[Rfam]
Rfam assigns this 128-nucleotide RNA sequence from Nannospalax galili to the family "Small nucleolar RNA SNORA44".
The family has 27 seed sequences and 1,056 matches in Rfam 15.1.
The match comes from Rfam's covariance-model search (102 bits).
Its Rfam clan is "SNORA44 clan".

RNA sequence: AAAUUUGGUGCCCUGCUGUGGCUGCUUGUGGCAUGGGAACUCCAACUGCAUGCCAGAGCAAUGUGGAGAGACUUUGACAGGUCAGGUCAGCACAGUACCUGCAGCUGCCAUUUACCUUUUCUCUAGAC
Numbered sequence: 001a002a003a004u005u006u007g008g009u010g011c012c013c014u015g016c017u018g019u020g021g022c023u024g025c026u027u028g029u030g031g032c033a034u035g036g037g038a039a040c041u042c043c044a045a046c047u048g049c050a051u052g053c054c055a056g057a058g059c060a061a062u063g064u065g066g067a068g069a070g071a072c073u074u075u076g077a078c079a080g081g082u083c084a085g086g087u088c089a090g091c092a093c094a095g096u097a098c099c100u101g102c103a104g105c106u107g108c109c110a111u112u113u114a115c116c117u118u119u120u121c122u123c124u125a126g127a128c
Base pairs, nucleotide, nucleotide: 011036012035014033015032016031017030018029019028020027065121066120067119068118069117070116080108083101084100085099086098
Dot-bracket structure: ..........((.(((((((......))))))).))............................((((((.........(..((((...........))))......).......)))))).......
From the family's description: ACA44 is a member of the H/ACA class of snoRNA that guide the sites of modification of uridines to pseudouridines. A reference for the family is Huttenhofer et al. (2001), "RNomics: an experimental approach that identifies 201 candidates for novel, small, non-messenger RNAs in mouse", EMBO J.